[Rfam]
RNA sequence: GGAGGUAGGCCCUCCGGGAUCGCCUUUUGGGAGGAGAUUCCAAACCACCGUACGGGGCAUUAGCUAAAGACUGUUGUCCAAAGCGGUACUAAAAAAGUUAGAGCAAUGACUCUUUCAGGU
Numbered sequence: 001g002g003a004g005g006u007a008g009g010c011c012c013u014c015c016g017g018g019a020u021c022g023c024c025u026u027u028u029g030g031g032a033g034g035a036g037a038u039u040c041c042a043a044a045c046c047a048c049c050g051u052a053c054g055g056g057g058c059a060u061u062a063g064c065u066a067a068a069g070a071c072u073g074u075u076g077u078c079c080a081a082a083g084c085g086g087u088a089c090u091a092a093a094a095a096a097g098u099u100a101g102a103g104c105a106a107u108g109a110c111u112c113u114u115u116c117a118g119g120u
Stems, first nucleotide, its partner, number of pairs: 001015005016041006023034004046119001050089004055079001057077003061073003097116001100113003
Shown here is a 120-nucleotide RNA sequence from Acidithrix ferrooxidans, a member of the family "Group II catalytic intron D1-D4-2".
Group II introns are found in rRNA, tRNA and mRNA of organelles in fungi, plants and protists, and also in mRNA in bacteria.
The match comes from Rfam's covariance-model search (77 bits).
For this family Rfam cites "The ins and outs of group II introns" (Bonen and Vogel, Trends Genet, 2001).
Pairs were carried over by alignment from the consensus structure.